[Rfam]
RNA sequence: ACCAUCCUUUUUCUGGGUUGUGCUUCUAUCCAAUGAGCGUGCAGUGAGAGCAGUAACUGCCAACACCUACACAGCAACCCCCGUCAACUGGAGCUUUGCUUUGCUUUGGCACAAUUUUUGGAAAA
Numbered sequence: 001a002c003c004a005u006c007c008u009u010u011u012u013c014u015g016g017g018u019u020g021u022g023c024u025u026c027u028a029u030c031c032a033a034u035g036a037g038c039g040u041g042c043a044g045u046g047a048g049a050g051c052a053g054u055a056a057c058u059g060c061c062a063a064c065a066c067c068u069a070c071a072c073a074g075c076a077a078c079c080c081c082c083g084u085c086a087a088c089u090g091g092a093g094c095u096u097u098g099c100u101u102u103g104c105u106u107u108g109g110c111a112c113a114a115u116u117u118u119u120g121g122a123a124a125a
Base pairs, nucleotide, nucleotide: 007017008016009015020060021059022058026053027052029050031048037045038044083110084109085108086107089103090102091101092100093099094098
This 125-nucleotide RNA sequence from Otolemur garnettii belongs to the Rfam family "U4atac minor spliceosomal RNA". The family is grouped with related families in Rfam's "U4 clan". The match comes from Rfam's covariance-model search (69 bits). By type it is a spliceosomal small nuclear RNA. Rfam's curators write: U4atac is an essential component of the minor U12-type spliceosome complex which is required for removal of the rarer class of eukaryotic introns (AT-AC, U12-type).